The record is a 183-nucleotide RNA sequence from Hordeum vulgare, which matches "Small nucleolar RNA Z112" in Rfam. The family's RNA type in Rfam is C/D-box small nucleolar RNA. Pairs were carried over by alignment from the consensus structure, which was predicted with PFOLD. A reference for the family is Liang et al. (2002), "A novel gene organization: intronic snoRNA gene clusters from Oryza sativa", Nucleic Acids Res. Taxonomically the source falls in Hordeum vulgare (Eukaryota, Euphyllophyta, Petrosaviidae, Hordeinae).
RNA sequence: GUCUCGGUGAAGAGCUCUAGACCAGGAAGUGCCGUAUGACACUGUAAACAGCAGCUGCUUCUAUGUUUCUGCAAGUGUCCAUCCCUGUAUCAUAACCUUUGUGGUUUGCUCUGGGAUGGAAAUACCCAUUUGCACCAGCUUGAUUCAGCUGUGUGCGUGAUUUUAAACGGGUCUCUGAGAGAU
Number, nucleotide and partner (000 for none) at each position: 001g183002u182003c181004u180005c179006g000007g000008u000009g000010a000011a000012g000013a000014g000015c000016u000017c000018u000019a000020g000021a000022c000023c000024a000025g000026g000027a000028a000029g000030u000031g000032c000033c000034g000035u000036a000037u000038g000039a000040c000041a000042c000043u000044g000045u000046a000047a000048a000049c000050a000051g000052c000053a000054g000055c000056u000057g000058c000059u000060u000061c000062u000063a000064u000065g000066u000067u000068u000069c000070u134071g133072c132073a131074a130075g129076u128077g127078u120079c119080c118081a117082u116083c115084c114085c000086u000087g000088u000089a110090u000091c108092a107093u000094a106095a105096c104097c103098u000099u000100u000101g000102u000103g097104g096105u095106u094107u092108g091109c000110u089111c000112u000113g000114g084115g083116a082117u081118g080119g079120a078121a000122a000123u000124a000125c000126c000127c077128a076129u075130u074131u073132g072133c071134a070135c000136c000137a000138g000139c000140u000141u000142g000143a000144u000145u000146c000147a000148g000149c000150u000151g000152u000153g000154u000155g000156c000157g000158u000159g000160a000161u000162u000163u000164u000165a000166a000167a000168c000169g000170g000171g000172u000173c000174u000175c000176u000177g000178a000179g005180a004181g003182a002183u001